[Rfam]
RNA sequence: ACUACGGUGAGAUAUGUUUGAUAUUCUUGGUUGUUAUUUUUAUUACGCACCCAGGAAUCAAACAUAUUAUUACUGUGGU
Numbered sequence: 001a002c003u004a005c006g007g008u009g010a011g012a013u014a015u016g017u018u019u020g021a022u023a024u025u026c027u028u029g030g031u032u033g034u035u036a037u038u039u040u041u042a043u044u045a046c047g048c049a050c051c052c053a054g055g056a057a058u059c060a061a062a063c064a065u066a067u068u069a070u071u072a073c074u075g076u077g078g079u
Stems, first nucleotide, its partner, number of pairs: 005075005011068012024055002029052002032049002
Description: Shown here is a 79-nucleotide sequence from Pseudolycoriella hygida, a member of the family "mir-190 microRNA precursor family". The family has 76 seed sequences and 1,667 matches in Rfam 15.1. Its Rfam clan is "mir-50 clan". On this family, see Kloosterman et al., Nucleic Acids Res 2006: "Cloning and expression of new microRNAs from zebrafish".